Rfam assigns this 87-nucleotide sequence from Aeribacillus pallidus to the family "Group II catalytic intron D1-D4-1".
The match comes from Rfam's covariance-model search (74 bits).

[Rfam]
RNA sequence: UAACCUAUCUAGUGAUAGAUAGCUGAACAGUCAGAAGUCAGCAGAAGUCAUAGUACUCUUUCAAGCUCGAGAUGGAAGAGGAAGGAC
Numbered sequence: 001u002a003a004c005c006u007a008u009c010u011a012g013u014g015a016u017a018g019a020u021a022g023c024u025g026a027a028c029a030g031u032c033a034g035a036a037g038u039c040a041g042c043a044g045a046a047g048u049c050a051u052a053g054u055a056c057u058c059u060u061u062c063a064a065g066c067u068c069g070a071g072a073u074g075g076a077a078g079a080g081g082a083a084g085g086a087c
Stems, first nucleotide, its partner, number of pairs: 001025002005022007038045002047087003056080008
The source organism's lineage runs through Bacteria, Bacilli, Caryophanales, Bacillaceae and Aeribacillus. The family has 237 seed sequences and 2,508 matches in Rfam 15.1.